[Rfam]
RNA sequence: UGCGUGGGCAUGGUCCAGUUUUCCCAGGAAUCCCUGUGCCCUUUUCCCGGGAUUCCAGGAAUAACUGUCCAAGCACACGUG
Numbered sequence: 001u002g003c004g005u006g007g008g009c010a011u012g013g014u015c016c017a018g019u020u021u022u023c024c025c026a027g028g029a030a031u032c033c034c035u036g037u038g039c040c041c042u043u044u045u046c047c048c049g050g051g052a053u054u055c056c057a058g059g060a061a062u063a064a065c066u067g068u069c070c071a072a073g074c075a076c077a078c079g080u081g
Stems, first nucleotide, its partner, number of pairs: 016067004022061001024059002027056008
RNA: mir-145 microRNA precursor family